[Rfam]
A member of the RNA family "Small nucleolar RNA SNORD30" from Cyclopterus lumpus, 70 nucleotides long. The family's RNA type in Rfam is C/D-box small nucleolar RNA. Rfam links the family to the GO terms RNA processing and nucleolus. The literature on the family includes a 1996 paper in Nature by Tycowski et al., "A mammalian gene with introns instead of exons generating stable RNA products". Rfam 15.1 lists 367 matches to the family in 268 species. NCBI's taxonomy places the organism under Eukaryota, Metazoa, Deuterostomia, Cyclopterinae, Cyclopterus.
RNA sequence: GAAAAUGAUGAGAUAUAUUUGGAAUCUCGUUCGUCUGAACUAAUGUUGAGAAAUCGAAUAACUGACAUCA
Numbered sequence: 001g002a003a004a005a006u007g008a009u010g011a012g013a014u015a016u017a018u019u020u021g022g023a024a025u026c027u028c029g030u031u032c033g034u035c036u037g038a039a040c041u042a043a044u045g046u047u048g049a050g051a052a053a054u055c056g057a058a059u060a061a062c063u064g065a066c067a068u069c070a
Stems, first nucleotide, its partner, number of pairs: 025051005032045003
Dot-bracket structure: ........................(((((..(((........))).)))))...................